[Rfam]
RNA sequence: GCGGAUGGCCGGAUGACCGCGGGCGCUUGAUGCGUCCGAGGAAAGUCCGGGCUCCAUGCAGGCAUGGUGCCGGGUAACGCCCGGCGGGGGCAACCCCAGGGAAAGCGCCACAGAGAACAGACCGCCCCCGCAAGCCGGGGGCAAGGGUGAAACGGUGGGGCAAGAGCCCACCGCGGGACGGGCAACCGGACCGGCACGGCAAGCCCCACCAGGAGCAAUGCCGAAUAGGGAUCGCGCGCGGGGGCAACCCCGCAGGGCUGCCUGCGCCCCAGCAGAUCCGGGUUGGCAGCUAGAGCCCGUCGGCAACGGCGGGACCAGAGGAAUGGUCAUCCACGGGGCGCCCCCUCGAAAAGGGCACCCCCGGACAGAACCCGGCUUACAGGCCAUCCGCGCAU
Numbered sequence: 001g002c003g004g005a006u007g008g009c010c011g012g013a014u015g016a017c018c019g020c021g022g023g024c025g026c027u028u029g030a031u032g033c034g035u036c037c038g039a040g041g042a043a044a045g046u047c048c049g050g051g052c053u054c055c056a057u058g059c060a061g062g063c064a065u066g067g068u069g070c071c072g073g074g075u076a077a078c079g080c081c082c083g084g085c086g087g088g089g090g091c092a093a094c095c096c097c098a099g100g101g102a103a104a105g106c107g108c109c110a111c112a113g114a115g116a117a118c119a120g121a122c123c124g125c126c127c128c129c130g131c132a133a134g135c136c137g138g139g140g141g142c143a144a145g146g147g148u149g150a151a152a153c154g155g156u157g158g159g160g161c162a163a164g165a166g167c168c169c170a171c172c173g174c175g176g177g178a179c180g181g182g183c184a185a186c187c188g189g190a191c192c193g194g195c196a197c198g199g200c201a202a203g204c205c206c207c208a209c210c211a212g213g214a215g216c217a218a219u220g221c222c223g224a225a226u227a228g229g230g231a232u233c234g235c236g237c238g239c240g241g242g243g244g245c246a247a248c249c250c251c252g253c254a255g256g257g258c259u260g261c262c263u264g265c266g267c268c269c270c271a272g273c274a275g276a277u278c279c280g281g282g283u284u285g286g287c288a289g290c291u292a293g294a295g296c297c298c299g300u301c302g303g304c305a306a307c308g309g310c311g312g313g314a315c316c317a318g319a320g321g322a323a324u325g326g327u328c329a330u331c332c333a334c335g336g337g338g339c340g341c342c343c344c345c346u347c348g349a350a351a352a353g354g355g356c357a358c359c360c361c362c363g364g365a366c367a368g369a370a371c372c373c374g375g376c377u378u379a380c381a382g383g384c385c386a387u388c389c390g391c392g393c394a395u
Stems, first nucleotide, its partner, number of pairs: 001391010011380001012331007020038007043378003047375005052215004062265002065211005070084005085099001086097004100206002105204002107200003122146002124142007154172006173195001174193003179188003219288004229279005258272003296313007

The record is a 395-nucleotide RNA from Paracoccus salipaludis, which matches "Bacterial RNase P class A" in Rfam.
The base pairs follow the family's consensus structure, which is taken from published work.
It scores 268 bits against the family's covariance model.
Rfam describes the family as follows. Ribonuclease P (RNase P) is a ubiquitous endoribonuclease, found in archaea, bacteria and eukarya as well as chloroplasts and mitochondria. Its best characterised activity is the generation of mature 5'-ends of tRNAs by cleaving the 5'-leader elements of precursor-tRNAs. Cellular RNase Ps are ribonucleoproteins. RNA from bacterial RNase Ps retains its catalytic activity in the absence of the protein subunit, i.e. it is a ribozyme.
Lineage of the source: Bacteria > Pseudomonadati > Alphaproteobacteria > Paracoccaceae > Paracoccus.